RNA sequence: GGGGAUGCACUGGUUUCGACGGGGAGUACAAAGUUUAGGAUGCAUGUCGUGCCUGAAUGAUGCACGUAAAUCUUUAUUUCAAUUUGUUAUAGUUGCAAACGACGAUAACUACGCUCUAGCGGCUUAAUCCCGCUAGCGCAGACUGGGACCGUUGUUCGUGGCACCCAGCUCUGUGUCGACUCACACGGAAUCGUCGGGUCUUAUGUGUUUGGAUAAGACUUGACUAAACUUAACAAACUCGCUUAAUGUGAUCCCUGCUGGCCGGGCAGCAUUAAGUUAAAAUAAUAGACCAAAUAAACAUGUAGAGUUUUAAAUGGAGGCUUCUCGGACGGCGGUUCGACUCCGCCCAUCUCCACCA
Numbered sequence: 001g002g003g004g005a006u007g008c009a010c011u012g013g014u015u016u017c018g019a020c021g022g023g024g025a026g027u028a029c030a031a032a033g034u035u036u037a038g039g040a041u042g043c044a045u046g047u048c049g050u051g052c053c054u055g056a057a058u059g060a061u062g063c064a065c066g067u068a069a070a071u072c073u074u075u076a077u078u079u080c081a082a083u084u085u086g087u088u089a090u091a092g093u094u095g096c097a098a099a100c101g102a103c104g105a106u107a108a109c110u111a112c113g114c115u116c117u118a119g120c121g122g123c124u125u126a127a128u129c130c131c132g133c134u135a136g137c138g139c140a141g142a143c144u145g146g147g148a149c150c151g152u153u154g155u156u157c158g159u160g161g162c163a164c165c166c167a168g169c170u171c172u173g174u175g176u177c178g179a180c181u182c183a184c185a186c187g188g189a190a191u192c193g194u195c196g197g198g199u200c201u202u203a204u205g206u207g208u209u210u211g212g213a214u215a216a217g218a219c220u221u222g223a224c225u226a227a228a229c230u231u232a233a234c235a236a237a238c239u240c241g242c243u244u245a246a247u248g249u250g251a252u253c254c255c256u257g258c259u260g261g262c263c264g265g266g267c268a269g270c271a272u273u274a275a276g277u278u279a280a281a282a283u284a285a286u287a288g289a290c291c292a293a294a295u296a297a298a299c300a301u302g303u304a305g306a307g308u309u310u311u312a313a314a315u316g317g318a319g320g321c322u323u324c325u326c327g328g329a330c331g332g333c334g335g336u337u338c339g340a341c342u343c344c345g346c347c348c349a350u351c352u353c354c355a356c357c358a
Stems, first nucleotide, its partner, number of pairs: 001354007020327008033315009043302005048066005055079005116136007137175006144163002152188004191226001193224005205240001207238004241277009252266003259292003263288001331347005
RNA: transfer-messenger RNA